This 74-nucleotide RNA from a Burkholderiaceae bacterium belongs to the Rfam family "tRNA".

[Rfam]
RNA sequence: CGCGCGAUGGAGCAGCCUGGUAGCUCGUUGGGCUCAUAACCCAAAGGUCGGAGGUUCAAAUCCUCCUCGCGCAA
Numbered sequence: 001c002g003c004g005c006g007a008u009g010g011a012g013c014a015g016c017c018u019g020g021u022a023g024c025u026c027g028u029u030g031g032g033c034u035c036a037u038a039a040c041c042c043a044a045a046g047g048u049c050g051g052a053g054g055u056u057c058a059a060a061u062c063c064u065c066c067u068c069g070c071g072c073a074a
Base pairs, nucleotide, nucleotide: 002072003071004070005069006068007067010026011025012024013023028044029043030042031041032040050066051065052064053063054062

Pairs were carried over by alignment from the consensus structure, which is taken from published work.